[Rfam]
RNA sequence: AAGUGUUACAGCUCUUUUAGAAUUGGUCUUGCAGAUUUUCUGAUUUGCACUAGGAAAACCAU
Numbered sequence: 001a002a003g004u005g006u007u008a009c010a011g012c013u014c015u016u017u018u019a020g021a022a023u024u025g026g027u028c029u030u031g032c033a034g035a036u037u038u039u040c041u042g043a044u045u046u047g048c049a050c051u052a053g054g055a056a057a058a059c060c061a062u
Stems, first nucleotide, its partner, number of pairs: 034059001036057007044049001